[Rfam]
RNA sequence: UCCAUCGCGAGGGAAUCUGAAGGAAGCUGGAUGUUGGGAACAUACUAACCAACGGGCAAAACUCUGGUCUGACGAACAGAAAUCGCAUAAGAGGCUAUACAUGAGGGUAAGGCUGCCAAGCAAGUUGAAGCCCAAUGACUACACGGAAGCAUGUGUGGUAAAUACGGCAGAUGGAUGGAGAGAAAGAAACGUGUG
Numbered sequence: 001u002c003c004a005u006c007g008c009g010a011g012g013g014a015a016u017c018u019g020a021a022g023g024a025a026g027c028u029g030g031a032u033g034u035u036g037g038g039a040a041c042a043u044a045c046u047a048a049c050c051a052a053c054g055g056g057c058a059a060a061a062c063u064c065u066g067g068u069c070u071g072a073c074g075a076a077c078a079g080a081a082a083u084c085g086c087a088u089a090a091g092a093g094g095c096u097a098u099a100c101a102u103g104a105g106g107g108u109a110a111g112g113c114u115g116c117c118a119a120g121c122a123a124g125u126u127g128a129a130g131c132c133c134a135a136u137g138a139c140u141a142c143a144c145g146g147a148a149g150c151a152u153g154u155g156u157g158g159u160a161a162a163u164a165c166g167g168c169a170g171a172u173g174g175a176u177g178g179a180g181a182g183a184a185a186g187a188a189a190c191g192u193g194u195g
Base pairs, nucleotide, nucleotide: 001014002013003012006011049195052192053191057186062180063179064178065177066176067172068171069170070169071168083167084166085165087163088162094159095158096157098155099154100153101152102151103150105133106132107131108130111126112125113124114123

Description:
Shown here is a 195-nucleotide sequence from Robinsoniella sp. RHS, a member of the family "Group II catalytic intron D1-D4-3". The pairing is the family consensus, mapped onto this sequence. Lineage of the source: Bacteria > Bacillati > Bacillota > Clostridia > Robinsoniella.